Shown here is a 118-nucleotide RNA from Urocitellus parryii, a member of the family "Small nucleolar RNA SNORA3/SNORA45 family". Rfam describes the family as follows. The members of this family belong to the H/ACA class of snoRNAs which are thought to guide the sites of modification of uridines to pseudouridines. This family includes mouse snoMBI-28 and human homologues ACA3 (SNORA3) and ACA3-2 (SNORA45). Both ACA3 and ACA3-2 share the same host gene. The family's RNA type in Rfam is H/ACA-box small nucleolar RNA. Its Rfam clan is "SNORA3 clan". A search with the family's covariance model found it, with a score of 62 bits. NCBI's taxonomy places the organism under Eukaryota, Euteleostomi, Mammalia, Theria, Urocitellus.
RNA sequence: GCUGAGACUGGAGUCACAUCCCGACCCAGAACUUGUCCUGGUGUGCCACAGUUCUCUGGUUUUGAUUCACUGGAGGGGACAGUUAAUGUCCACAUUACUGCCCAGAUCAGAAAAGUAG
Numbered sequence: 001g002c003u004g005a006g007a008c009u010g011g012a013g014u015c016a017c018a019u020c021c022c023g024a025c026c027c028a029g030a031a032c033u034u035g036u037c038c039u040g041g042u043g044u045g046c047c048a049c050a051g052u053u054c055u056c057u058g059g060u061u062u063u064g065a066u067u068c069a070c071u072g073g074a075g076g077g078g079a080c081a082g083u084u085a086a087u088g089u090c091c092a093c094a095u096u097a098c099u100g101c102c103c104a105g106a107u108c109a110g111a112a113a114a115g116u117a118g
Base pairs, nucleotide, nucleotide: 005055006054007052008051009050013046015045016044017043018042019041020040023037024036025035056110057109058108059107060106061105062104064102068100069099071097072096073095075093077091078090079089080088